[Rfam]
The family of this 123-nucleotide RNA from Limosilactobacillus mucosae is "PyrR binding site". Pairs were carried over by alignment from the consensus structure, which is taken from published work.
RNA sequence: UCAACCUUUAAUCUGGUCCCGUGAGGCCUCCAAGGAUGUUCGUUAAAAUAAAAUCUUCGCCCUUUUUAGGGAGGACAUUAUUUGCAUCGUCACUGGUCUCACUUGGCCAGUGACGAUUUUUCU
Numbered sequence: 001u002c003a004a005c006c007u008u009u010a011a012u013c014u015g016g017u018c019c020c021g022u023g024a025g026g027c028c029u030c031c032a033a034g035g036a037u038g039u040u041c042g043u044u045a046a047a048a049u050a051a052a053a054u055c056u057u058c059g060c061c062c063u064u065u066u067u068a069g070g071g072a073g074g075a076c077a078u079u080a081u082u083u084g085c086a087u088c089g090u091c092a093c094u095g096g097u098c099u100c101a102c103u104u105g106g107c108c109a110g111u112g113a114c115g116a117u118u119u120u121u122c123u
Base pairs, nucleotide, nucleotide: 003037005035006034007033008032015028016027017026018025050081052079053078054077056075057074058073060071061070062069086117087116088115089114090113091112092111093110094109095108096107097106098105